This 212-nucleotide sequence from Drosophila melanogaster belongs to the Rfam family "U12 minor spliceosomal RNA". The base pairs follow the family's consensus structure. The source organism's lineage runs through Eukaryota, Dicondylia, Pterygota, Ephydroidea and Sophophora. The literature on the family includes a 1997 paper in Trends Biochem Sci by Tarn and Steitz, "Pre-mRNA splicing: the discovery of a new spliceosome doubles the challenge".
[Rfam]
Nucleotides: 212
Base pairs, nucleotide, nucleotide: 004023005022006021008019033055035053036052037051040048061099062098063097064096065095145212146211147210148209149208150207151206152205153204154203155202156201157196158195161192162191164189168184169183170182171181172180
Number, partner (000 for none) and nucleotide at each position: 001000g002000u003000g004023c005022c006021u007000c008019a009000a010000a011000c012000u013000a014000a015000u016000g017000a018000g019008u020000a021006a022005g023004g024000a025000a026000a027000a028000c029000c030000a031000a032000u033055c034000a035053g036052c037051c038000u039000u040048g041000c042000u043000a044000a045000u046000c047000g048040c049000u050000u051037g052036g053035c054000a055033g056000u057000a058000u059000u060000g061099g062098c063097u064096u065095c066000u067000a068000g069000g070000c071000a072000g073000g074000g075000g076000g077000g078000c079000g080000u081000g082000u083000c084000c085000c086000g087000c088000g089000c090000c091000c092000c093000u094000u095065g096064a097063a098062g099061c100000u101000c102000a103000a104000a105000u106000u107000u108000u109000u110000g111000c112000a113000a114000g115000g116000g117000c118000a119000c120000a121000g122000g123000u124000c125000g126000u127000c128000c129000c130000c131000u132000c133000c134000u135000c136000c137000u138000c139000c140000g141000c142000g143000u144000g145212g146211g147210u148209g149208g150207c151206g152205u153204u154203c155202g156201g157196c158195c159000g160000a161192g162191c163000g164189a165000a166000c167000c168184g169183g170182c171181g172180c173000c174000u175000a176000c177000u178000u179000u180172g181171c182170g183169u184168c185000c186000g187000g188000c189164u190000a191162g192161c193000g194000a195158g196157g197000a198000u199000c200000u201156c202155u203154g204153g205152g206151u207150g208149c209148c210147a211146c212145c